RNA sequence: GGGAAACUGGGAAGGGGGCUGGAGCGAGAGCCAUUCAGGCCCCAGGAACUAUAGGCUCU
Numbered sequence: 001g002g003g004a005a006a007c008u009g010g011g012a013a014g015g016g017g018g019c020u021g022g023a024g025c026g027a028g029a030g031c032c033a034u035u036c037a038g039g040c041c042c043c044a045g046g047a048a049c050u051a052u053a054g055g056c057u058c059u
Stems, first nucleotide, its partner, number of pairs: 015043006022035001024034001028058005
Dot-bracket structure: ..............((((((.(.(...[[[[[.))..))))))..........]]]]].
A member of the RNA family "Ma3 gene ribosomal frameshift signal" from Sphenodon punctatus, 59 nucleotides long. Rfam 15.1 lists 565 matches to the family in 155 species. Pairs were carried over by alignment from the consensus structure, which is taken from published work. It is annotated as a frameshift element. The match comes from Rfam's covariance-model search (47 bits). Rfam links the family to the GO term translational frameshifting. The literature on the family includes a 2006 paper in J Biol Chem by Wills et al., "A functional -1 ribosomal frameshift signal in the human paraneoplastic Ma3 gene".